A member of the RNA family "Potassium channel RNA editing signal" from Tenebrio molitor, 114 nucleotides long. The organism belongs to Tenebrio, within Eukaryota. It is annotated as a cis-regulatory element.
RNA sequence: GUGGGGUACGGCGAUAUGGUGCCAAAGACUUACAUAGGGAUGUUCGUGGGGGCGCUGUGUGCUCUAGCUGGUGUGCUCACCAUCGCGUUGCCAGUGCCUGUGAUCGUUUCGAAU
Number, nucleotide and partner (000 for none) at each position: 001g114002u113003g000004g000005g110006g000007u000008a107009c106010g105011g104012c000013g000014a101015u100016a099017u000018g097019g000020u000021g095022c094023c000024a000025a000026a000027g000028a000029c000030u000031u000032a000033c000034a000035u000036a000037g077038g076039g000040a074041u000042g000043u000044u000045c000046g000047u000048g000049g063050g062051g000052g000053c000054g000055c000056u000057g000058u000059g000060u000061g000062c050063u049064c000065u000066a000067g000068c000069u000070g000071g000072u000073g000074u040075g000076c038077u037078c000079a000080c000081c000082a000083u000084c000085g000086c000087g000088u000089u000090g000091c000092c000093a000094g022095u021096g000097c018098c000099u016100g015101u014102g000103a000104u011105c010106g009107u008108u000109u000110c005111g000112a000113a002114u001
Its family is annotated with adenosine to inosine editing in the Gene Ontology. Pairs were carried over by alignment from the consensus structure, which is taken from published work.